[Rfam]
RNA sequence: AUUUCUGACGGAAAUGGGGUUUUCCAAGAUUAUAAAUCUAAACUGCUAUAAGUGCUGAUAACUCCUGUAACUUC
Numbered sequence: 001a002u003u004u005c006u007g008a009c010g011g012a013a014a015u016g017g018g019g020u021u022u023u024c025c026a027a028g029a030u031u032a033u034a035a036a037u038c039u040a041a042a043c044u045g046c047u048a049u050a051a052g053u054g055c056u057g058a059u060a061a062c063u064c065c066u067g068u069a070a071c072u073u074c
Stems, first nucleotide, its partner, number of pairs: 010025004016065006045055002

The family of this 74-nucleotide RNA sequence from Solobacterium moorei is "Fluoride riboswitch aptamer (crcB RNA motif)".
It scores 39 bits against the family's covariance model.
Taxonomically the source falls in Solobacterium moorei (Bacteria, Bacillota, Erysipelotrichia, Solobacterium).